RNA sequence: AGCUGUGAACCGCGAGGAAACGUCUCCCCUUGCGGAUCCGGACCAAUAAAAACCAAAGGAG
Numbered sequence: 001a002g003c004u005g006u007g008a009a010c011c012g013c014g015a016g017g018a019a020a021c022g023u024c025u026c027c028c029c030u031u032g033c034g035g036a037u038c039c040g041g042a043c044c045a046a047u048a049a050a051a052a053c054c055a056a057a058g059g060a061g
Stems, first nucleotide, its partner, number of pairs: 003041003007038002010035008
A member of the RNA family "L20-Deltaproteobacteria ribosomal protein leader", 61 nucleotides long. The literature on the family includes a 2020 paper in BMC Microbiol by Eckert and Weinberg, "Discovery of 20 novel ribosomal leader candidates in bacteria and archaea". Rfam's curators put it in the seed alignment.